[Rfam]
RNA: 6S / SsrS RNA
RNA sequence: AGUCAUCUGAAGUGUUCGAAAUAAGCUUUAUAUAUUUUGACCUAACACUUUUUGAUCAGGGAGCCAGAUAGGUUUUCUUAAUAGCGCAUACGCCUCGCAAGGAGGACAUGCAAAAUAAGAAACAGGGCACCCACCUGUAUUUAGCAGGCCAAAAUGAUCUAGCACUUUUUAUUACGGCACAAUCGGAUUCUAU
Numbered sequence: 001a002g003u004c005a006u007c008u009g010a011a012g013u014g015u016u017c018g019a020a021a022u023a024a025g026c027u028u029u030a031u032a033u034a035u036u037u038u039g040a041c042c043u044a045a046c047a048c049u050u051u052u053u054g055a056u057c058a059g060g061g062a063g064c065c066a067g068a069u070a071g072g073u074u075u076u077c078u079u080a081a082u083a084g085c086g087c088a089u090a091c092g093c094c095u096c097g098c099a100a101g102g103a104g105g106a107c108a109u110g111c112a113a114a115a116u117a118a119g120a121a122a123c124a125g126g127g128c129a130c131c132c133a134c135c136u137g138u139a140u141u142u143a144g145c146a147g148g149c150c151a152a153a154a155u156g157a158u159c160u161a162g163c164a165c166u167u168u169u170u171a172u173u174a175c176g177g178c179a180c181a182a183u184c185g186g187a188u189u190c191u192a193u
Base pairs, nucleotide, nucleotide: 002191005188006187007186008185009184010183012180013179014178015177017176018175033156034155035154037152038151039150041148042147059132060131061130063128064127065126075121076120077119078118079117081116082115088109089108093105094104095103096102
Dot-bracket structure: .(..((((((.((((.((..............(((.(((.((................(((.(((.........(((((.((.....((...((((.....))))..)).....)))))))....))).)))..............)).))).)))..................))))))..))))))..)..